[Rfam]
RNA sequence: UAUGAGGUUGGUGCAAGAGUAAUUGUGGUUUUUGCUGUUAAAAGUAAUGGCAAAAAUCACAAUUACUCUUGCACCAACCUAAUA
Numbered sequence: 001u002a003u004g005a006g007g008u009u010g011g012u013g014c015a016a017g018a019g020u021a022a023u024u025g026u027g028g029u030u031u032u033u034g035c036u037g038u039u040a041a042a043a044g045u046a047a048u049g050g051c052a053a054a055a056a057u058c059a060c061a062a063u064u065a066c067u068c069u070u071g072c073a074c075c076a077a078c079c080u081a082a083u084a
Stems, first nucleotide, its partner, number of pairs: 001084003005080036
A member of the RNA family "mir-548 microRNA precursor family" from Gorilla gorilla, 84 nucleotides long. The match comes from Rfam's covariance-model search (94 bits).